[Rfam]
RNA sequence: CUGGGAGGAGAGGGUCCUAGAGAAGCGUGGACGGGUCCAGGUGGGUUCUGGCAGGUCCUCACCCUCUCCAGGCCCCAUCCUCAUCU
Numbered sequence: 001c002u003g004g005g006a007g008g009a010g011a012g013g014g015u016c017c018u019a020g021a022g023a024a025g026c027g028u029g030g031a032c033g034g035g036u037c038c039a040g041g042u043g044g045g046u047u048c049u050g051g052c053a054g055g056u057c058c059u060c061a062c063c064c065u066c067u068c069c070a071g072g073c074c075c076c077a078u079c080c081u082c083a084u085c086u
Base pairs, nucleotide, nucleotide: 003084005082006081007080008079009078012075013074014073016072017071018070020068021067022066023065025062027060029058030057031056032055037051038050039049040048041047
Rfam assigns this 86-nucleotide RNA from Piliocolobus tephrosceles to the family "mir-657 microRNA precursor family". NCBI's taxonomy places the organism under Eukaryota, Metazoa, Bilateria, Colobinae, Piliocolobus. For this family Rfam cites "Computational identification of novel microRNA homologs in the chimpanzee" (Baev et al., Comput Biol Chem, 2009).